The record is a 153-nucleotide RNA from Arminella tumorigenes, which matches "speF leader" in Rfam. The source organism's lineage runs through Bacteria, Pseudomonadati, Pseudomonadota, Hyphomicrobiales and Arminella. Rfam's curators write: This family is a putative regulatory RNA structure that is found upstream of the speF gene encoding ornithine decarboxylase in Agrobacterium tumefaciens and other alpha-proteobacteria. For this family Rfam cites "Evidence for a second class of S-adenosylmethionine riboswitches and other regulatory RNA motifs in alpha-proteobacteria" (Corbino et al., Genome Biol, 2005).
[Rfam]
RNA sequence: UUCCGGCUUUCCAUCAGCCGGGGUUACUGAAGAGGCACACCAUCAUUGCCGGAAGUGCGGUAGGGAAACCUCCAAUCCAAGGCAGACAAAGCCGAACCUAUGCCAUCCUAUGGCGUUGGUUCACUGAUCGAGCAUCGUGCGUUCGCCAAGGAU
Numbered sequence: 001u002u003c004c005g006g007c008u009u010u011c012c013a014u015c016a017g018c019c020g021g022g023g024u025u026a027c028u029g030a031a032g033a034g035g036c037a038c039a040c041c042a043u044c045a046u047u048g049c050c051g052g053a054a055g056u057g058c059g060g061u062a063g064g065g066a067a068a069c070c071u072c073c074a075a076u077c078c079a080a081g082g083c084a085g086a087c088a089a090a091g092c093c094g095a096a097c098c099u100a101u102g103c104c105a106u107c108c109u110a111u112g113g114c115g116u117u118g119g120u121u122c123a124c125u126g127a128u129c130g131a132g133c134a135u136c137g138u139g140c141g142u143u144c145g146c147c148a149a150g151g152a153u
Stems, first nucleotide, its partner, number of pairs: 001023008034050004057146003081093002101134003